Overview:
Shown here is a 63-nucleotide RNA from Rhodoferax sediminis, a member of the family "Fluoride riboswitch aptamer (crcB RNA motif)". Pairs were carried over by alignment from the consensus structure, which is taken from published work. The organism belongs to Rhodoferax, within Bacteria.
Nucleotides: 063
Stems, first nucleotide, its partner, number of pairs: 010026004016054006033044004
Number, partner (000 for none) and nucleotide at each position: 001000c002000g003000u004000c005000g006000c007000a008000a009000c010026g011025g012024a013023g014000a015000u016054g017053g018052c019051a020050u021049u022000c023013c024012u025011c026010c027000a028000g029000a030000a031000c032000c033044g034043c035042c036041c037000a038000c039000c040000c041036g042035g043034g044033c045000u046000g047000a048000u049021g050020a051019u052018g053017c054016c055000u056000a057000c058000a059000g060000a061000g062000g063000g